[Rfam]
RNA: Bacterial small signal recognition particle RNA
RNA sequence: UCCCGGGGCCUAUGCAAAAAAGGUUUUUCGAACCCCGUCAGAUCCGGAAGGAAGCAGCGGUAGAUUAAUUCUUUUUGUGCCGUAGUGUUCCCGGGUUUUU
Numbered sequence: 001u002c003c004c005g006g007g008g009c010c011u012a013u014g015c016a017a018a019a020a021a022g023g024u025u026u027u028u029c030g031a032a033c034c035c036c037g038u039c040a041g042a043u044c045c046g047g048a049a050g051g052a053a054g055c056a057g058c059g060g061u062a063g064a065u066u067a068a069u070u071c072u073u074u075u076u077g078u079g080c081c082g083u084a085g086u087g088u089u090c091c092c093g094g095g096u097u098u099u100u
Stems, first nucleotide, its partner, number of pairs: 004093005010085005015077001017076006024068002028064002035060004043052003